RNA sequence: CGCAUCAAGGAGCGUUGCGACAGAUCGUUCGAUCUGCCAGGCUUGAUGCGGUCAGUAAUAGCAACUGCGCUCACGUUUC
Numbered sequence: 001c002g003c004a005u006c007a008a009g010g011a012g013c014g015u016u017g018c019g020a021c022a023g024a025u026c027g028u029u030c031g032a033u034c035u036g037c038c039a040g041g042c043u044u045g046a047u048g049c050g051g052u053c054a055g056u057a058a059u060a061g062c063a064a065c066u067g068c069g070c071u072c073a074c075g076u077u078u079c
Base pairs, nucleotide, nucleotide: 002049003048004047005046006045007044008043021036022035023034024033025032026031